[Rfam]
RNA sequence: CUCUUAUUCAGAGUAGGCGGAGGGACAGGCCCUAAGAAACCCGGCAACCGUCACAUUUUGUGAAAUGGUGCUCAACCUGAGCAAGGGAUACCUUGAACGAUAAGAG
Numbered sequence: 001c002u003c004u005u006a007u008u009c010a011g012a013g014u015a016g017g018c019g020g021a022g023g024g025a026c027a028g029g030c031c032c033u034a035a036g037a038a039a040c041c042c043g044g045c046a047a048c049c050g051u052c053a054c055a056u057u058u059u060g061u062g063a064a065a066u067g068g069u070g071c072u073c074a075a076c077c078u079g080a081g082c083a084a085g086g087g088a089u090a091c092c093u094u095g096a097a098c099g100a101u102a103a104g105a106g
Stems, first nucleotide, its partner, number of pairs: 001106008013042001016041002022032003026081001029077001043072004048068002051063003082095005

Background:
A member of the RNA family "SAM riboswitch aptamer (S box leader)" from Terribacillus saccharophilus, 106 nucleotides long. Rfam's curators write: The SAM riboswitch is found upstream of a number of genes which code for proteins involved in methionine or cysteine biosynthesis in Gram-positive bacteria. The SAM riboswitch acts at the level of transcription termination control. The predicted structure consists of a complex stem-loop region followed by a single stem loop terminator region. An alternative and mutually exclusive form involves bases in the 3' segment of helix 1 with those in the 5' region of helix 5 to form a structure termed the anti-terminator form. The organism belongs to Terribacillus, within Bacteria.